[Rfam]
RNA sequence: CUCCCCGAAAUAGCUUUAGGGCUAGCCUCAUAAUAGAUUACUGGAGGUAAAGCACUGAAUGGGCUAGGGGUCGAGAGAUUACCGAACCCUAUCAAACUCUGAAUGCCAGAUAAUCGUUUUAUGGGAGUCAGACUGUGUGAGAUAAGUUUCAUAGUCGAAAGGGAAAGAGCCCAGACCCACAGCUAAGGUCCCAAAGUAGAUUUAAGUGGAAAAGGAUGUGGAACUGCUAAAACAACCAGGAUGUUGGCUUAGAAGCAGCCAUACAUUUAAAGAGUGCGUAAUAGCUCACUGGUCGAGUGGUUCUGCGCCGAAAAUUCAACGGGGCUAAAAUCUACACCGAAGCUUGGGCAGUAUUUUGUACUGGGUAGGGGAGCGUCGUAUAUUGGGCGAAGUCAGAGCGGAAGCGCUGGUGGACGAUAUACGAGUGAGAAU
Number, nucleotide and partner (000 for none) at each position: 001c373002u372003c371004c370005c369006c368007g000008a000009a000010a000011u024012a023013g022014c021015u020016u000017u000018a000019g000020g015021g014022c013023u012024a011025g000026c127027c125028u124029c123030a122031u121032a120033a119034u000035a118036g115037a114038u113039u112040a111041c109042u108043g107044g106045a000046g000047g000048u000049a000050a100051a098052g097053c000054a000055c000056u094057g093058a092059a000060u000061g089062g088063g087064c000065u000066a000067g083068g082069g080070g079071u078072c077073g000074a000075g000076a000077g072078a071079u070080u069081a000082c068083c067084g000085a000086a000087c063088c062089c061090u000091a000092u058093c057094a056095a000096a000097c052098u051099c000100u050101g000102a000103a000104u000105g000106c044107c043108a042109g041110a000111u040112a039113a038114u037115c036116g000117u000118u035119u033120u032121a031122u030123g029124g028125g027126a000127g026128u000129c000130a000131g156132a155133c154134u153135g152136u151137g150138u000139g148140a147141g000142a000143u000144a000145a000146g000147u140148u139149u000150c137151a136152u135153a134154g133155u132156c131157g000158a000159a000160a000161g172162g171163g170164a000165a000166a000167g000168a000169g000170c163171c162172c161173a000174g000175a000176c348177c347178c346179a345180c000181a344182g343183c342184u000185a000186a000187g338188g337189u336190c000191c000192c000193a000194a000195a000196g335197u334198a333199g332200a331201u330202u329203u000204a000205a000206g000207u000208g000209g000210a000211a000212a000213a000214g309215g308216a000217u000218g306219u305220g304221g303222a302223a301224c300225u299226g298227c297228u000229a000230a000231a000232a000233c000234a000235a293236c292237c291238a290239g289240g000241a266242u265243g264244u000245u000246g260247g259248c258249u000250u000251a000252g000253a000254a000255g000256c000257a000258g248259c247260c246261a000262u000263a000264c243265a242266u241267u271268u000269a000270a000271a267272g287273a000274g000275u000276g285277c284278g000279u000280a000281a000282u000283a000284g277285c276286u000287c272288a000289c239290u238291g237292g236293u235294c000295g000296a000297g227298u226299g225300g224301u223302u222303c221304u220305g219306c218307g000308c215309c214310g000311a000312a000313a000314a000315u000316u000317c000318a000319a000320c000321g000322g000323g000324g000325c000326u000327a000328a000329a202330a201331u200332c199333u198334a197335c196336a189337c188338c187339g000340a000341a000342g183343c182344u181345u179346g178347g177348g176349c363350a362351g361352u360353a359354u000355u000356u000357u000358g000359u353360a352361c351362u350363g349364g000365g000366u000367a000368g006369g005370g004371g003372a002373g001374c427375g000376u424377c423378g422379u421380a420381u419382a418383u417384u416385g415386g000387g000388c000389g000390a000391a000392g411393u410394c409395a408396g407397a000398g405399c404400g000401g000402a000403a000404g399405c398406g000407c396408u395409g394410g393411u392412g000413g000414a000415c385416g384417a383418u382419a381420u380421a379422c378423g377424a376425g000426u000427g374428a000429g000430a000431a000432u000
Rfam assigns this 432-nucleotide part of an RNA from Massiliimalia timonensis to the family "Bacterial large subunit ribosomal RNA". Its family is annotated with ribosome and structural constituent of ribosome in the Gene Ontology. A search with the family's covariance model found it, with a score of 2774 bits. Pairs were carried over by alignment from the consensus structure, which is taken from published work.